[Rfam]
RNA sequence: GCAUAUCUGUGUGUGGAUAGUGUUCAGCACCAAGGAUAUGUGUGUUUGUAUUGUGUAGAUCAUGUUCAAAACCAAGGACAGGUGUGUGUUUAU
Numbered sequence: 001g002c003a004u005a006u007c008u009g010u011g012u013g014u015g016g017a018u019a020g021u022g023u024u025c026a027g028c029a030c031c032a033a034g035g036a037u038a039u040g041u042g043u044g045u046u047u048g049u050a051u052u053g054u055g056u057a058g059a060u061c062a063u064g065u066u067c068a069a070a071a072c073c074a075a076g077g078a079c080a081g082g083u084g085u086g087u088g089u090u091u092a093u
Stems, first nucleotide, its partner, number of pairs: 004084007018074001020072002023069002026066004032060001034054001036052001038051005
RNA: mir-2060 microRNA precursor family